[Rfam]
RNA sequence: AGCAGAGGAGCUGCUGCUUCGCACAGGAGCAAGUUACCGCGUUCGCUAGGCUGCAGUAACUUGCUCCUGUGAGAGGCGGCGGCUCUUAGCU
Numbered sequence: 001a002g003c004a005g006a007g008g009a010g011c012u013g014c015u016g017c018u019u020c021g022c023a024c025a026g027g028a029g030c031a032a033g034u035u036a037c038c039g040c041g042u043u044c045g046c047u048a049g050g051c052u053g054c055a056g057u058a059a060c061u062u063g064c065u066c067c068u069g070u071g072a073g074a075g076g077c078g079g080c081g082g083c084u085c086u087u088a089g090c091u
Stems, first nucleotide, its partner, number of pairs: 001091003006087015022071016039054003